This 143-nucleotide RNA from Allolucifera butyrica belongs to the Rfam family "c-di-AMP riboswitch aptamer (ydaO/yuaA leader)". NCBI's taxonomy places the organism under Bacteria, Bacillati, Negativicutes, Veillonellales, Allolucifera. A search with the family's covariance model found it, with a score of 79 bits. Rfam describes the family as follows. This family represents a conserved RNA structure found upstream of the ydaO and yuaA genes in Bacillus subtilis and related genes in other bacteria. The base pairs follow the family's consensus structure.

[Rfam]
RNA sequence: AAAAUUAAAAUGCCGAAUCCAUAUAGGUACGGGGGAACCGCUAGAAAAACAGGGGUAAAUCCGCAUUGCGGAGGGGUUGUUUCUCUUUUCUCUCUUUCGCCCUCACCCGACAGCUAACCUCGGAGGCACUCAAAAGAGAGGUG
Number, nucleotide and partner (000 for none) at each position: 001a000002a000003a000004a000005u000006u000007a000008a000009a000010a000011u128012g127013c126014c125015g000016a000017a000018u000019c027020c026021a000022u000023a000024u000025a000026g020027g019028u000029a000030c122031g121032g120033g119034g118035g000036a000037a000038c000039c052040g000041c000042u000043a000044g000045a000046a000047a000048a000049a000050c000051a000052g039053g108054g107055g106056u000057a000058a000059a000060u000061c071062c070063g069064c068065a000066u000067u000068g064069c063070g062071g061072a000073g000074g102075g101076g100077u099078u000079g000080u000081u000082u000083c000084u000085c000086u000087u000088u000089u000090c000091u000092c000093u000094c000095u000096u000097u000098c000099g077100c076101c075102c074103u000104c000105a000106c055107c054108c053109g000110a000111c000112a000113g000114c000115u000116a000117a000118c034119c033120u032121c031122g030123g000124a000125g014126g013127c012128a011129c000130u000131c000132a000133a000134a000135a000136g000137a000138g000139a000140g000141g000142u000143g000